[Rfam]
RNA: Mammalian CPEB3 ribozyme
Organism: Alligator mississippiensis
RNA sequence: UUUGCAAAUUUGAGGCCAUGGCAGAAGUGCUCGUCGUGCAGCCUGUUAGAUUCCAAUUAAAUCUGUGAAUUCUGCU
Dot-bracket structure: .............[[[...((((((((((.......))).]]]...((((((.......))))))....)))))))